[Rfam]
RNA sequence: AGCAAUAGAAAUGAUGGUCAAAGCUCAUGGAUGUUGCAGGCUUUUUUGCCCUGCACUCCUUACGAGUUU
Numbered sequence: 001a002g003c004a005a006u007a008g009a010a011a012u013g014a015u016g017g018u019c020a021a022a023g024c025u026c027a028u029g030g031a032u033g034u035u036g037c038a039g040g041c042u043u044u045u046u047u048g049c050c051c052u053g054c055a056c057u058c059c060u061u062a063c064g065a066g067u068u069u
Stems, first nucleotide, its partner, number of pairs: 021069006035055006
Annotation: Rfam assigns this 69-nucleotide RNA from Streptococcus oralis to the family "Streptococcus sRNA Spd-sr37". Rfam's curators put it in the seed alignment.